A member of the RNA family "Plasmid transferred anti-sense RNA" from Pseudomonas mangiferae, 72 nucleotides long. The match comes from Rfam's covariance-model search (71 bits). The source organism's lineage runs through Bacteria, Pseudomonadota, Gammaproteobacteria, Pseudomonadales and Pseudomonas. The family's RNA type in Rfam is antitoxin RNA. A reference for the family is Findeiss et al. (2010), "A novel family of plasmid-transferred anti-sense ncRNAs", RNA Biol. Rfam links the family to the GO terms negative regulation of translation and mRNA binding.

RNA sequence: UUGCCACGAUUCACCUCUUCUUCAGGUGGAUUAAUGGAAGUGUCGGCCGGCCCCACGCCGACCGAUGCGCCU
Numbered sequence: 001u002u003g004c005c006a007c008g009a010u011u012c013a014c015c016u017c018u019u020c021u022u023c024a025g026g027u028g029g030a031u032u033a034a035u036g037g038a039a040g041u042g043u044c045g046g047c048c049g050g051c052c053c054c055a056c057g058c059c060g061a062c063c064g065a066u067g068c069g070c071c072u
Stems, first nucleotide, its partner, number of pairs: 004037003009031001012028005040068007048060004